RNA sequence: CGUCGUUACUAUUAACCGGCACGGGCGUCGAGGAAACUCAACGCCCGUGCAGUUAUGUUAAGGGCAGGAUAGAGAAU
Numbered sequence: 001c002g003u004c005g006u007u008a009c010u011a012u013u014a015a016c017c018g019g020c021a022c023g024g025g026c027g028u029c030g031a032g033g034a035a036a037c038u039c040a041a042c043g044c045c046c047g048u049g050c051a052g053u054u055a056u057g058u059u060a061a062g063g064g065c066a067g068g069a070u071a072g073a074g075a076a077u
Stems, first nucleotide, its partner, number of pairs: 003018001005016001019050009030039003